[Rfam]
RNA sequence: UUGCCCACUCUUGACUGUCAGUGUCUCUAGUGGCCAUGACAGGGGGGUAAAGUGACCCCUUGCUAAAACCUGGGUCAGAGGUAAUUACUCUGUGCCUGGAUCCUGUCGCAAGAUACACGC
Dot-bracket structure: .(((((.((......((.(..........)....)).....)).))))).........(((((......(((((((.(((.(....)))).).))))))........)))))........
Numbered sequence: 001u002u003g004c005c006c007a008c009u010c011u012u013g014a015c016u017g018u019c020a021g022u023g024u025c026u027c028u029a030g031u032g033g034c035c036a037u038g039a040c041a042g043g044g045g046g047g048u049a050a051a052g053u054g055a056c057c058c059c060u061u062g063c064u065a066a067a068a069c070c071u072g073g074g075u076c077a078g079a080g081g082u083a084a085u086u087a088c089u090c091u092g093u094g095c096c097u098g099g100a101u102c103c104u105g106u107c108g109c110a111a112g113a114u115a116c117a118c119g120c
Stems, first nucleotide, its partner, number of pairs: 002049005008043002016036002019030001059112005070099006076092001078090003082087001
Rfam assigns this 120-nucleotide RNA from Triplophysa tibetana to the family "Small nucleolar RNA SNORA26". On this family, see Huttenhofer et al., EMBO J 2001: "RNomics: an experimental approach that identifies 201 candidates for novel, small, non-messenger RNAs in mouse". From the family's description: The snoRNA HBI-6 belong to the H/ACA family of snoRNAs, guiding the pseudouridylation of position U4522 if the 28S rRNA. HBI-6 is the human orthologue of mouse MBI-6 snoRNA. It is annotated as an H/ACA-box small nucleolar RNA. Lineage of the source: Eukaryota > Chordata > Vertebrata > Gnathostomata > Triplophysa.